Rfam assigns this 126-nucleotide RNA from Lacinutrix sp. WUR7 to the family "Bacteroidete tryptophan peptide leader RNA". By type it is a cis-regulatory leader. The family's consensus secondary structure is taken from published work. Gene Ontology terms of the family: S-adenosylmethionine metabolic process and regulation of gene expression. A search with the family's covariance model found it, with a score of 61 bits.
RNA sequence: UUGACCUAAAUUAAUAACAAUUGAGCACAAUUUUAAAUAAUACUUGGUGGUGGAACUCUCGAAAAACAAUCUUCGUGAACUAACGCUAUACCGUAUAUUUAACCAAAAUAUCAAAAAAGGCUUGUC
Numbered sequence: 001u002u003g004a005c006c007u008a009a010a011u012u013a014a015u016a017a018c019a020a021u022u023g024a025g026c027a028c029a030a031u032u033u034u035a036a037a038u039a040a041u042a043c044u045u046g047g048u049g050g051u052g053g054a055a056c057u058c059u060c061g062a063a064a065a066a067c068a069a070u071c072u073u074c075g076u077g078a079a080c081u082a083a084c085g086c087u088a089u090a091c092c093g094u095a096u097a098u099u100u101a102a103c104c105a106a107a108a109u110a111u112c113a114a115a116a117a118a119g120g121c122u123u124g125u126c
Stems, first nucleotide, its partner, number of pairs: 036100002040096004047089001049087004057079001058077001060075002063072001065070001